ctgf/hcs24 CAESAR: a 97-nucleotide RNA sequence from Sarcophilus harrisii. The family's RNA type in Rfam is cis-regulatory element. Its family is annotated with negative regulation of gene expression in the Gene Ontology. Rfam's curators write: The 3' UTR of human connective tissue growth factor/hypertrophic chondrocyte specific 24 (ctgf/hcs24) mRNA has been shown to repress ctgf gene expression. Reference identified a minimal RNA element, predicted to form a stable secondary structure, which acts as a post-transcriptional cis-acting element of structure-anchored repression (CAESAR), probably through direct interactions with as yet unknown nuclear factors.
[Rfam]
RNA sequence: AUGGAGACAUGGCAUAAAGCCAGAGAGAGAAAGAGACAGAAAGAAAGAAAAAGAGACUAAUUAGACUGUCAACUUGAAAAGAUUCGCAUCUCAUUUU
Numbered sequence: 001a002u003g004g005a006g007a008c009a010u011g012g013c014a015u016a017a018a019g020c021c022a023g024a025g026a027g028a029g030a031a032a033g034a035g036a037c038a039g040a041a042a043g044a045a046a047g048a049a050a051a052a053g054a055g056a057c058u059a060a061u062u063a064g065a066c067u068g069u070c071a072a073c074u075u076g077a078a079a080a081g082a083u084u085c086g087c088a089u090c091u092c093a094u095u096u097u
Stems, first nucleotide, its partner, number of pairs: 004092004010022004027087001029085002